[Rfam]
RNA sequence: UGAUAUUCCCCAUGGGGAAGGAUGAGAAGCUUCGACCCGAAGGUUUGAGUCGAACGCAGUGAGACAACGCCAUGCAAUGGCGGCCCGCAGGGCGAGGAACGCAGUGACGUGUUAUCCUUCCCCCACCACCA
Number, nucleotide and partner (000 for none) at each position: 001u000002g000003a000004u000005a000006u000007u000008c000009c000010c000011c000012a000013u000014g000015g122016g121017g120018a119019a118020g117021g116022a000023u114024g000025a000026g000027a000028a000029g000030c000031u000032u000033c094034g093035a000036c092037c091038c000039g000040a000041a000042g000043g000044u089045u000046u087047g086048a000049g000050u000051c061052g060053a000054a000055c000056g000057c000058a000059g000060u052061g051062a000063g000064a000065c000066a000067a000068c082069g081070c080071c079072a078073u077074g000075c000076a000077a073078u072079g071080g070081c069082g068083g000084c000085c000086c047087g046088c000089a044090g000091g037092g036093c034094g033095a000096g000097g000098a000099a000100c000101g000102c000103a000104g000105u000106g000107a000108c000109g000110u000111g000112u000113u000114a023115u000116c021117c020118u019119u018120c017121c016122c015123c000124c000125a000126c000127c000128a000129c000130c000131a000
Shown here is a 131-nucleotide RNA sequence from Erwinia tasmaniensis, a member of the family "RtT RNA". It is annotated as a cis-regulatory element. Rfam 15.1 lists 651 matches to the family in 204 species. This family represents a bacterial cis-regulatory element known as RtT RNA. The exact function of RtT is unknown although it is thought that it may be involved in changing the cellular response in relation to amino acid starvation. NCBI's taxonomy places the organism under Bacteria, Pseudomonadota, Gammaproteobacteria, Enterobacterales, Erwinia. Pairs were carried over by alignment from the consensus structure, which is taken from published work.